RAGATH-18 RNA: a 62-nucleotide sequence from Granulicatella balaenopterae. Lineage of the source: Bacteria > Bacilli > Lactobacillales > Carnobacteriaceae > Granulicatella. By type it is a small RNA. Rfam's curators write: Actinobacteria, Firmicutes, Fusobacteria, Thermotogae (1 example).
RNA sequence: CCUUUGGAGAACCAUAUCAAAUCGUAGUAGCCUAGGCCAGACGAUGUUCUAAGAAAAAGGAA
Numbered sequence: 001c002c003u004u005u006g007g008a009g010a011a012c013c014a015u016a017u018c019a020a021a022u023c024g025u026a027g028u029a030g031c032c033u034a035g036g037c038c039a040g041a042c043g044a045u046g047u048u049c050u051a052a053g054a055a056a057a058a059g060g061a062a
Base pairs, nucleotide, nucleotide: 001060002059003058004057005056009049010048011047012046022044023043024042030037031036